Record summary
The record is an 80-nucleotide sequence from Ancylostoma duodenale, which matches "SmY spliceosomal RNA" in Rfam. The literature on the family includes a 2006 paper in Genome Res by Deng et al., "Organization of the Caenorhabditis elegans small non-coding transcriptome: genomic features, biogenesis, and expression". By type it is a spliceosomal small nuclear RNA. The family's consensus secondary structure is taken from published work. Lineage of the source: Eukaryota > Opisthokonta > Ecdysozoa > Ancylostomatinae > Ancylostoma.
RNA sequence: GAAAUCUGAAUAACCUGCUCAGGGCCUCUAGUAAGACCCUUUGUACUGAUUUUGGGAAACCUCUGCUUAGGCAGAGGUUA
Numbered sequence: 001g002a003a004a005u006c007u008g009a010a011u012a013a014c015c016u017g018c019u020c021a022g023g024g025c026c027u028c029u030a031g032u033a034a035g036a037c038c039c040u041u042u043g044u045a046c047u048g049a050u051u052u053u054g055g056g057a058a059a060c061c062u063c064u065g066c067u068u069a070g071g072c073a074g075a076g077g078u079u080a
Stems, first nucleotide, its partner, number of pairs: 022039003026035002058079009